[Rfam]
RNA sequence: GGGGUGCGAUAGACUAACCUCUACGUGGUGCACCCUGGACAACGUAUACUCAUACGGCAAAAAGGUCGAU
Numbered sequence: 001g002g003g004g005u006g007c008g009a010u011a012g013a014c015u016a017a018c019c020u021c022u023a024c025g026u027g028g029u030g031c032a033c034c035c036u037g038g039a040c041a042a043c044g045u046a047u048a049c050u051c052a053u054a055c056g057g058c059a060a061a062a063a064g065g066u067c068g069a070u
Stems, first nucleotide, its partner, number of pairs: 001036007017029003043056005
Dot-bracket structure: (((((((.........(((.......))))))))))......(((((....)))))..............
HDV ribozyme from F. prausnitzii: a 70-nucleotide RNA from Rodentolepis nana.
The base pairs follow the family's consensus structure, which is taken from published work.
A search with the family's covariance model found it, with a score of 46 bits.
The source organism's lineage runs through Eukaryota, Metazoa, Eumetazoa, Cestoda and Rodentolepis.
The literature on the family includes a 2009 paper in Science by Webb et al., "Widespread occurrence of self-cleaving ribozymes".